[Rfam]
Description:
The record is a 75-nucleotide RNA sequence from Herbaspirillum sp. meg3, which matches "Xanthomonas sRNA sX9" in Rfam.

RNA sequence: ACGUACUCGAGUACGUUCCGGUUCCUGCGCUCCGGCCGCCACCGGCUGAUGACCUCUCGCUACGGUUCAAAGACA
Numbered sequence: 001a002c003g004u005a006c007u008c009g010a011g012u013a014c015g016u017u018c019c020g021g022u023u024c025c026u027g028c029g030c031u032c033c034g035g036c037c038g039c040c041a042c043c044g045g046c047u048g049a050u051g052a053c054c055u056c057u058c059g060c061u062a063c064g065g066u067u068c069a070a071a072g073a074c075a
Base pairs, nucleotide, nucleotide: 002015003014004013005012006011019034020033021032024029047072050069051068052067
Notes:
Rfam 15.1 lists 309 matches to the family in 52 species. The base pairs follow the family's consensus structure, which was predicted with RNAalifold. A search with the family's covariance model found it, with a score of 46 bits.